[Rfam]
Annotation:
Shown here is a 118-nucleotide RNA sequence from Desulforapulum autotrophicum, a member of the family "Group II catalytic intron D1-D4-2". The base pairs follow the family's consensus structure. Its family is annotated with Group II intron splicing in the Gene Ontology. Lineage of the source: Bacteria > Pseudomonadati > Desulfobacteraceae > Desulforapulum > Desulforapulum autotrophicum. Rfam's curators write: Group II introns are found in rRNA, tRNA and mRNA of organelles in fungi, plants and protists, and also in mRNA in bacteria. Rfam 15.1 lists 1,231 matches to the family in 625 species.
RNA sequence: GAGGGAGGGCCCCUCGAAGCCGCCAUGCAGGUGGAGGCUUCAAACCACCGUAAGCUGCGUCGGUUAAGAGCCGGGGUGGUGAGCGUUACGGAAAAGGCAAGACCAGAUUUUGUCAGGU
Number, nucleotide and partner (000 for none) at each position: 001g015002a014003g013004g012005g011006a000007g000008g000009g000010c000011c005012c004013c003014u002015c001016g041017a040018a039019g038020c037021c036022g000023c034024c033025a032026u031027g000028c000029a000030g000031g026032u025033g024034g023035a000036g021037g020038c019039u018040u017041c016042a000043a000044a000045c000046c117047a000048c091049c090050g089051u088052a087053a086054g080055c079056u000057g077058c076059g000060u074061c073062g072063g071064u070065u000066a000067a000068g000069a000070g064071c063072c062073g061074g060075g000076g058077u057078g000079g055080u054081g000082a000083g000084c000085g000086u053087u052088a051089c050090g049091g048092a000093a000094a000095a000096g114097g113098c112099a111100a110101g109102a000103c000104c000105a000106g000107a000108u000109u101110u100111u099112g098113u097114c096115a000116g000117g046118u000